A member of the RNA family "U4 spliceosomal RNA" from Coccidioides posadasii, 137 nucleotides long. For this family Rfam cites "The uRNA database" (Zwieb, Nucleic Acids Res, 1997). Rfam links the family to the GO terms U4 snRNP and spliceosomal tri-snRNP complex assembly.
RNA sequence: AUCCGAGUGCACGGGUCUUACGUUUCCAGUGAAGGUUCGCCUGAGGCAACGUUUUUGCUAGUUGAAAACUACAAACUUAGACCGCUCCAGUUGGUCUUCGGAUCGGCUGGGAAUUUUUGAAAAAAUUUGUCUUUAAA
Numbered sequence: 001a002u003c004c005g006a007g008u009g010c011a012c013g014g015g016u017c018u019u020a021c022g023u024u025u026c027c028a029g030u031g032a033a034g035g036u037u038c039g040c041c042u043g044a045g046g047c048a049a050c051g052u053u054u055u056u057g058c059u060a061g062u063u064g065a066a067a068a069c070u071a072c073a074a075a076c077u078u079a080g081a082c083c084g085c086u087c088c089a090g091u092u093g094g095u096c097u098u099c100g101g102a103u104c105g106g107c108u109g110g111g112a113a114u115u116u117u118u119g120a121a122a123a124a125a126u127u128u129g130u131c132u133u134u135a136a137a
Stems, first nucleotide, its partner, number of pairs: 020052005026046002033042003086111011126137004